Small nucleolar RNA Z266: a 94-nucleotide RNA from Spirodela intermedia. On this family, see Chen et al., Nucleic Acids Res 2003: "The high diversity of snoRNAs in plants: identification and comparative study of 120 snoRNA genes from Oryza sativa". It scores 70 bits against the family's covariance model. By type it is a C/D-box small nucleolar RNA.
RNA sequence: UGUGGUGGGAAAUGAUGAUUCAAUUAGAUGCGUGAAGAUAGAUUUAUCUAUUGAACUGAAUUUUUGAGGCAUACAAGUUGUCUGAUCCGCCACA
Numbered sequence: 001u002g003u004g005g006u007g008g009g010a011a012a013u014g015a016u017g018a019u020u021c022a023a024u025u026a027g028a029u030g031c032g033u034g035a036a037g038a039u040a041g042a043u044u045u046a047u048c049u050a051u052u053g054a055a056c057u058g059a060a061u062u063u064u065u066g067a068g069g070c071a072u073a074c075a076a077g078u079u080g081u082c083u084g085a086u087c088c089g090c091c092a093c094a
Stems, first nucleotide, its partner, number of pairs: 001094007009087002
NCBI's taxonomy places the organism under Eukaryota, Viridiplantae, Tracheophyta, Spermatophyta, Spirodela. The family's consensus secondary structure was predicted with PFOLD. The family has 11 seed sequences and 719 matches in Rfam 15.1.